[Rfam]
RNA: t44 RNA
Organism: Shewanella salipaludis
RNA sequence: UUUAUGUAAAUACUAAAUCACACACGUAUCGACACAUUCUUCGGGGUGCUCCCGGCUGGAAAGCCUGGGGUCGAAGGCAUGGGAUGCGUGGAGGUCCAAC
Numbered sequence: 001u002u003u004a005u006g007u008a009a010a011u012a013c014u015a016a017a018u019c020a021c022a023c024a025c026g027u028a029u030c031g032a033c034a035c036a037u038u039c040u041u042c043g044g045g046g047u048g049c050u051c052c053c054g055g056c057u058g059g060a061a062a063g064c065c066u067g068g069g070g071u072c073g074a075a076g077g078c079a080u081g082g083g084a085u086g087c088g089u090g091g092a093g094g095u096c097c098a099a100c
Base pairs, nucleotide, nucleotide: 023090024089025088026087027086028085029084030083035081036080037079039077040075041074042073043072048071049070050069051068052067